[Rfam]
Source information:
The family of this 45-nucleotide RNA from Albula glossodonta is "Histone 3' UTR stem-loop". Its family is annotated with mRNA 3'-end processing by stem-loop binding and cleavage in the Gene Ontology. The literature on the family includes a 1999 paper in Gene by Dominski and Marzluff, "Formation of the 3' end of histone mRNA". Rfam 15.1 lists 44,596 matches to the family in 976 species. Taxonomically the source falls in Albula (Eukaryota, Chordata, Euteleostomi, Albuliformes). The family's RNA type in Rfam is cis-regulatory element.
RNA sequence: CUAAAGGCCCUUUUAAGGGCCACCCACACUUUCUCAAAAAAGCUG
Numbered sequence: 001c002u003a004a005a006g007g008c009c010c011u012u013u014u015a016a017g018g019g020c021c022a023c024c025c026a027c028a029c030u031u032u033c034u035c036a037a038a039a040a041a042g043c044u045g
Base pairs, nucleotide, nucleotide: 006021007020008019009018010017011016